This 35-nucleotide RNA belongs to the Rfam family "DUF805b RNA".
The family's consensus secondary structure is taken from published work.
The family's RNA type in Rfam is cis-regulatory element.
The family is grouped with related families in Rfam's "DUF805 clan".
RNA sequence: AUAGCGAAAGCCGAAAAGCUAAGAGAGAGUAGGCG
Numbered sequence: 001a002u003a004g005c006g007a008a009a010g011c012c013g014a015a016a017a018g019c020u021a022a023g024a025g026a027g028a029g030u031a032g033g034c035g
Base pairs, nucleotide, nucleotide: 002021003020004019005018010034011033012032